[Rfam]
RNA sequence: GUUCACAUCUUACCGGGCAGCAUUAGAUUCUUUUGAUAACUCUAAUACUGUCAGGUAAAGAUGUCGUC
Numbered sequence: 001g002u003u004c005a006c007a008u009c010u011u012a013c014c015g016g017g018c019a020g021c022a023u024u025a026g027a028u029u030c031u032u033u034u035g036a037u038a039a040c041u042c043u044a045a046u047a048c049u050g051u052c053a054g055g056u057a058a059a060g061a062u063g064u065c066g067u068c
Stems, first nucleotide, its partner, number of pairs: 003066001005064005010058005016052005022046006
Dot-bracket structure: ..(.((((((((((.(((((.((((((.............)))))).))))).))))).))))).)..

Rfam assigns this 68-nucleotide RNA sequence from Drosophila gunungcola to the family "mir-8/mir-141/mir-200 microRNA precursor family". Pairs were carried over by alignment from the consensus structure, which was predicted with RNAalifold. Rfam 15.1 lists 2,669 matches to the family in 883 species. A search with the family's covariance model found it, with a score of 70 bits. The literature on the family includes a 2003 paper in RNA by Lagos-Quintana et al., "New microRNAs from mouse and human". Rfam links the family to the GO terms miRNA-mediated post-transcriptional gene silencing and RISC complex.